[Rfam]
RNA sequence: UUCCACUGAUGACUUCUUGUUAGUGCCACGUGUCUGGGCCACUGAGACCACAUGAUGGAACUGAGGAUCUGAGGAA
Numbered sequence: 001u002u003c004c005a006c007u008g009a010u011g012a013c014u015u016c017u018u019g020u021u022a023g024u025g026c027c028a029c030g031u032g033u034c035u036g037g038g039c040c041a042c043u044g045a046g047a048c049c050a051c052a053u054g055a056u057g058g059a060a061c062u063g064a065g066g067a068u069c070u071g072a073g074g075a076a
Stems, first nucleotide, its partner, number of pairs: 001076004
Dot-bracket structure: ((((....................................................................))))
RNA: Small nucleolar RNA SNORD66